[Rfam]
The family of this 71-nucleotide RNA sequence from Vombatus ursinus is "mir-137 microRNA precursor family". Gene Ontology terms of the family: RISC complex and miRNA-mediated post-transcriptional gene silencing. A search with the family's covariance model found it, with a score of 78 bits. The family is grouped with related families in Rfam's "mir-137 clan".
RNA sequence: CGCGAUGACGGGUAUUCUUGGGUAGAUAAUACCGACGGUGCUGUUAUUGCUUGAGAAUACACGUAGUCGAG
Numbered sequence: 001c002g003c004g005a006u007g008a009c010g011g012g013u014a015u016u017c018u019u020g021g022g023u024a025g026a027u028a029a030u031a032c033c034g035a036c037g038g039u040g041c042u043g044u045u046a047u048u049g050c051u052u053g054a055g056a057a058u059a060c061a062c063g064u065a066g067u068c069g070a071g
Base pairs, nucleotide, nucleotide: 001071003069004068005067008064009063010062012060013059014058015057016056017055018054019053020052021051022050023049025048026047027046028045029044030043031042032040